[Rfam]
RNA: Small nucleolar RNA SNORA33
RNA sequence: AAGCCAGUCAAUGAAUCUGCUUACCUGAUUGUGUUUCUGCAGAAAUUUUUUAUAACUGGCGAUAGCAAUGCCAUGUUACGAGCCUUAAUGACAUUAGGGUCUUUAAGGUCCCUGAAAGUGGCUAUAUAA
Numbered sequence: 001a002a003g004c005c006a007g008u009c010a011a012u013g014a015a016u017c018u019g020c021u022u023a024c025c026u027g028a029u030u031g032u033g034u035u036u037c038u039g040c041a042g043a044a045a046u047u048u049u050u051u052a053u054a055a056c057u058g059g060c061g062a063u064a065g066c067a068a069u070g071c072c073a074u075g076u077u078a079c080g081a082g083c084c085u086u087a088a089u090g091a092c093a094u095u096a097g098g099g100u101c102u103u104u105a106a107g108g109u110c111c112c113u114g115a116a117a118g119u120g121g122c123u124a125u126a127u128a129a
Stems, first nucleotide, its partner, number of pairs: 003060005016043005070122004082109007090101003